[Rfam]
RNA: c-di-GMP-I riboswitch aptamer
RNA sequence: UAGUGAUAAUGGCAAACUUAUCCGAAAGGUGAGGGCGCAAAGCUGCGGGUCUAAUGCGAAAGCGAUGACAGCCGGGUUACCAAA
Numbered sequence: 001u002a003g004u005g006a007u008a009a010u011g012g013c014a015a016a017c018u019u020a021u022c023c024g025a026a027a028g029g030u031g032a033g034g035g036c037g038c039a040a041a042g043c044u045g046c047g048g049g050u051c052u053a054a055u056g057c058g059a060a061a062g063c064g065a066u067g068a069c070a071g072c073c074g075g076g077u078u079a080c081c082a083a084a
Stems, first nucleotide, its partner, number of pairs: 012038002017033004022029002041078004046074003049069003056063002